[Rfam]
RNA sequence: ACUUCCUUCUCACCGAUGAAAUACUUUGACUGGCAGUCCCGGUGAGCUUGACUAGGACAGAAGAGAUAGCGGAAGUUUUUUAGUAGGUUUAGUACGUAGGCAUAAUUCCCUAUCAGAGGGUUAUGUAUCGUGCAUGCCAUAUACGGACGGUAGAUGGUAUCUUUAGACGAUUUCAUUUUCCUGCCGUA
Number, nucleotide and partner (000 for none) at each position: 001a000002c000003u000004u000005c000006c000007u000008u000009c000010u000011c000012a000013c000014c000015g000016a000017u000018g000019a000020a000021a000022u000023a000024c000025u000026u000027u000028g000029a000030c000031u000032g000033g000034c060035a000036g058037u057038c056039c055040c000041g000042g000043u000044g000045a000046g000047c000048u000049u000050g000051a000052c000053u000054a000055g039056g038057a037058c036059a000060g034061a000062a000063g000064a000065g000066a187067u186068a000069g184070c183071g000072g000073a000074a000075g000076u000077u000078u000079u000080u000081u000082a182083g181084u000085a179086g178087g000088u000089u000090u000091a000092g133093u132094a131095c130096g129097u000098a000099g000100g000101c125102a124103u123104a122105a121106u120107u119108c118109c000110c116111u115112a000113u000114c000115a111116g110117a000118g108119g107120g106121u105122u104123a103124u102125g101126u000127a000128u000129c096130g095131u094132g093133c092134a000135u159136g158137c157138c156139a155140u154141a000142u000143a000144c000145g000146g000147a000148c000149g000150g000151u000152a000153g000154a140155u139156g138157g137158u136159a135160u000161c000162u000163u000164u000165a000166g000167a000168c000169g000170a000171u000172u000173u000174c000175a000176u000177u000178u086179u085180c000181c083182u082183g070184c069185c000186g067187u066188a000
R2 RNA element: a 188-nucleotide RNA sequence from Drosophila simulans. Rfam links the family to the GO term regulation of reverse transcription. This family represents the 3' UTR region of the R2 retrotransposable element. The organism belongs to Sophophora, within Eukaryota. The family has 15 seed sequences and 3,698 matches in Rfam 15.1.